[Rfam]
This 184-nucleotide RNA sequence from Senna tora belongs to the Rfam family "MIR530 microRNA precursor family". Rfam links the family to the GO terms miRNA-mediated post-transcriptional gene silencing and RISC complex. A search with the family's covariance model found it, with a score of 86 bits.
RNA sequence: CCCAACAUGUUGCCUUUAUCUGCAUUUGCACCUGCACUUUAUCACUUUGCUUCUCUUUAAUUCUCCUUCAUUCAACCCUAUUAUAUAUAUAUAGGGUUGUUAUUAAUAAUUGUGUGAUGGGAUUAGAUGGAAAAGAGACGAAGGAGGAGGUGCAAGUGCAUUUGCAGGUGAAUGCCAUUUUGGC
Numbered sequence: 001c002c003c004a005a006c007a008u009g010u011u012g013c014c015u016u017u018a019u020c021u022g023c024a025u026u027u028g029c030a031c032c033u034g035c036a037c038u039u040u041a042u043c044a045c046u047u048u049g050c051u052u053c054u055c056u057u058u059a060a061u062u063c064u065c066c067u068u069c070a071u072u073c074a075a076c077c078c079u080a081u082u083a084u085a086u087a088u089a090u091a092u093a094g095g096g097u098u099g100u101u102a103u104u105a106a107u108a109a110u111u112g113u114g115u116g117a118u119g120g121g122a123u124u125a126g127a128u129g130g131a132a133a134a135g136a137g138a139c140g141a142a143g144g145a146g147g148a149g150g151u152g153c154a155a156g157u158g159c160a161u162u163u164g165c166a167g168g169u170g171a172a173u174g175c176c177a178u179u180u181u182g183g184c
Stems, first nucleotide, its partner, number of pairs: 002183004007178003012175002015172010027160005033154007054095003